[Rfam]
RNA sequence: AUCUUAACAAAUUAAUUCACUCAUAUAACGGCGAGAAUAUGGCUCGCAAGUUUCUACCGACUUACCGUAAAUAAGUCGACUAUGAGAGAAACCAGUUUAGAU
Numbered sequence: 001a002u003c004u005u006a007a008c009a010a011a012u013u014a015a016u017u018c019a020c021u022c023a024u025a026u027a028a029c030g031g032c033g034a035g036a037a038u039a040u041g042g043c044u045c046g047c048a049a050g051u052u053u054c055u056a057c058c059g060a061c062u063u064a065c066c067g068u069a070a071a072u073a074a075g076u077c078g079a080c081u082a083u084g085a086g087a088g089a090a091a092c093c094a095g096u097u098u099a100g101a102u
Stems, first nucleotide, its partner, number of pairs: 018088001020086006031047005058078007
Purine riboswitch aptamer: a 102-nucleotide RNA sequence from Ureibacillus yapensis. Pairs were carried over by alignment from the consensus structure, which is taken from published work. About the family: Riboswitches are metabolite binding domains within certain messenger RNAs that serve as precision sensors for their corresponding targets. Allosteric rearrangement of mRNA structure is mediated by ligand binding, and this results in modulation of gene expression. A class of riboswitches that selectively recognises guanine and becomes saturated at concentrations as low as 5 nM. In Bacillus subtilis, this mRNA motif is located on at least five separate transcriptional units that together encode 17 genes that are mostly involved in purine transport and purine nucleotide biosynthesis. It has also been shown that some members of this family are specific for adenine instead. Hence this family are termed purine riboswitches. A search with the family's covariance model found it, with a score of 89 bits.